[Rfam]
RNA sequence: GCAUGGAUGAAUUCUGCACUAGCUUUCCUCAGUAGCUGAUGCAGUCAGACACCAUGCCAGAGCAAAAUUCCUUUUUUCCCACUGUGCCUGGUGUGCUUUUUCCUGGGAAUGGGCAUGCCCUUGGAAGGGGAAUACAUAA
Numbered sequence: 001g002c003a004u005g006g007a008u009g010a011a012u013u014c015u016g017c018a019c020u021a022g023c024u025u026u027c028c029u030c031a032g033u034a035g036c037u038g039a040u041g042c043a044g045u046c047a048g049a050c051a052c053c054a055u056g057c058c059a060g061a062g063c064a065a066a067a068u069u070c071c072u073u074u075u076u077u078c079c080c081a082c083u084g085u086g087c088c089u090g091g092u093g094u095g096c097u098u099u100u101u102c103c104u105g106g107g108a109a110u111g112g113g114c115a116u117g118c119c120c121u122u123g124g125a126a127g128g129g130g131a132a133u134a135c136a137u138a139a
Base pairs, nucleotide, nucleotide: 001057002056003055004054005053006052014044015043016042017041018040072131073130074128075127076126077125078124079123090119091118092117093116094115095114096113097112098111
The record is a 139-nucleotide RNA sequence from Mohoua ochrocephala, which matches "Small nucleolar RNA SNORA15" in Rfam. ACA15 is a member of the H/ACA class of snoRNA that guide the sites of modification of uridines to pseudouridines. The family's RNA type in Rfam is H/ACA-box small nucleolar RNA. Its family is annotated with RNA processing and nucleolus in the Gene Ontology. Pairs were carried over by alignment from the consensus structure, which was predicted with RNAfold. A reference for the family is Huttenhofer et al. (2001), "RNomics: an experimental approach that identifies 201 candidates for novel, small, non-messenger RNAs in mouse", EMBO J.